[Rfam]
RNA sequence: GGAAACUUUGCUCUGAAGAUAUUUGUCUAGCAGGUUUCUCAUAAAGAGAAGCCCCU
Numbered sequence: 001g002g003a004a005a006c007u008u009u010g011c012u013c014u015g016a017a018g019a020u021a022u023u024u025g026u027c028u029a030g031c032a033g034g035u036u037u038c039u040c041a042u043a044a045a046g047a048g049a050a051g052c053c054c055c056u
Stems, first nucleotide, its partner, number of pairs: 033053008

A member of the RNA family "U7 small nuclear RNA" from Oryzias latipes, 56 nucleotides long. Taxonomically the source falls in Oryzias (Eukaryota, Opisthokonta, Metazoa, Chordata). The base pairs follow the family's consensus structure, which was predicted with PFOLD.